[Rfam]
RNA: SAH (S-adenosyl-L-homocysteine) riboswitch aptamer
Organism: Actinokineospora fastidiosa
RNA sequence: GUGGCCGAGAGGCGCUGCAACGGACUACGGUCCGCCACGCUCGGCCGGGUCCACCGCGAAGCAAGGGCGCCUCCCACGA
Numbered sequence: 001g002u003g004g005c006c007g008a009g010a011g012g013c014g015c016u017g018c019a020a021c022g023g024a025c026u027a028c029g030g031u032c033c034g035c036c037a038c039g040c041u042c043g044g045c046c047g048g049g050u051c052c053a054c055c056g057c058g059a060a061g062c063a064a065g066g067g068c069g070c071c072u073c074c075c076a077c078g079a
Base pairs, nucleotide, nucleotide: 002047003046004045005044006043007042008041021034022033023032024031025030